[Rfam]
Nucleotides: 134
Stems, first nucleotide, its partner, number of pairs: 004131007017029003031114002033104002035065004060102002070078001085099004106117003
Number, partner (000 for none) and nucleotide at each position: 001000a002000u003000a004131a005130u006129c007128c008127u009126u010125c011000g012000g013000g014000g015000u016000c017029g018028g019027g020000u021000g022000a023000a024000a025000u026000u027019c028018c029017c030000a031114a032113u033104c034103g035065a036064c037063g038062g039000u040000g041000a042000u043000g044000c045000g046000u047000g048000u049000u050000a051000g052000a053000g054000c055000g056000a057000u058000a059000a060102g061101u062038c063037c064036g065035u066000g067000a068000g069000c070078u071000u072000u073000u074000c075000g076000g077000a078070g079000c080000a081000g082000g083000a084000g085099c086098u087097g088096g089000u090000g091000a092000g093000a094000a095000u096088c097087c098086a099085g100000a101061a102060c103034c104033g105000a106117c107116a108115g109000u110000a111000c112000a113032g114031u115108c116107u117106g118000g119000a120000u121000g122000g123000g124000a125010g126009a127008a128007g129006g130005a131004u132000g133000u134000g